[Rfam]
Nucleotides: 076
Stems, first nucleotide, its partner, number of pairs: 015044002018041001022075006028040003048065007
Number, partner (000 for none) and nucleotide at each position: 001000g002000g003000u004000u005000g006000c007000a008000a009000g010000u011000u012000u013000g014000a015044g016043g017000c018041c019000a020000u021000a022075g023074c024073a025072g026071a027070a028040g029039u030038g031000c032000u033000u034000a035000u036000g037000g038030c039029a040028u041018g042000a043016c044015c045000u046000g047000u048065c049064a050063g051062a052061u053060u054059c055000u056000a057000a058000u059054g060053a061052a062051u063050c064049u065048g066000c067000a068000a069000a070027u071026u072025c073024u074023g075022c076000c
About this RNA
The record is a 76-nucleotide RNA from Alligator mississippiensis, which matches "Mammalian CPEB3 ribozyme" in Rfam. Pairs were carried over by alignment from the consensus structure, which is taken from published work. The source organism's lineage runs through Eukaryota, Deuterostomia, Amniota, Alligatoridae and Alligator.